[Rfam]
RNA sequence: CCGAGGUACACGACGACCCGCAUGACAGAGGCGGGGGACCCACUUCUGGGCAUCUUCGGAUGUCCUUGGGGUGAAGCCAGAAGGGCCUCGGCCCGGACGGCCGGAUGUGACUCCCAUCCGAACCCGACAGCUGACCCCGUAGGCGACCAAGGAGAGGCCAC
Numbered sequence: 001c002c003g004a005g006g007u008a009c010a011c012g013a014c015g016a017c018c019c020g021c022a023u024g025a026c027a028g029a030g031g032c033g034g035g036g037g038a039c040c041c042a043c044u045u046c047u048g049g050g051c052a053u054c055u056u057c058g059g060a061u062g063u064c065c066u067u068g069g070g071g072u073g074a075a076g077c078c079a080g081a082a083g084g085g086c087c088u089c090g091g092c093c094c095g096g097a098c099g100g101c102c103g104g105a106u107g108u109g110a111c112u113c114c115c116a117u118c119c120g121a122a123c124c125c126g127a128c129a130g131c132u133g134a135c136c137c138c139g140u141a142g143g144c145g146a147c148c149a150a151g152g153a154g155a156g157g158c159c160a161c
Stems, first nucleotide, its partner, number of pairs: 001143002007029001031140006041068002069125003077100002103119004
RNA: c-di-AMP riboswitch aptamer (ydaO/yuaA leader)
Organism: Paraoerskovia marina